RNA sequence: AUGCCAUAGUGUGAUAUGGCUUUUUAUUCCUAUGUGAUGAUAAGAAAAUGCUCAUGUAGGAAUAGAAGCCAUUUUACAUGUGGUGA
Dot-bracket structure: .((((((.((((((.((((((((..((((((((((((..............)))))))))))).)))))))).)))))))))))).
RNA: mir-135 microRNA precursor family